[Rfam]
RNA sequence: CCAUUAAUCAGGCCGAAUCCCUUAAAUACAGGGUACGGGGGAAUAAAUACAAGCGGGGUGAAUCCGCGGCCUUUAAAGUUGAGGUGAAUUAUAAGGGGCCGUGGUAGGGUGACUCCCAUCCGAAUCCAUCAACUAACCCCGGAGGCAGUACGGGAGGGCUGA
Dot-bracket structure: ...........(((....((((.......))))..(((((...............(((.....(((((((((((...................)))))))))))..((((.......))))...))).........)))))..)))................
Rfam assigns this 162-nucleotide sequence from Desulfocucumis palustris to the family "c-di-AMP riboswitch aptamer (ydaO/yuaA leader)". It scores 63 bits against the family's covariance model.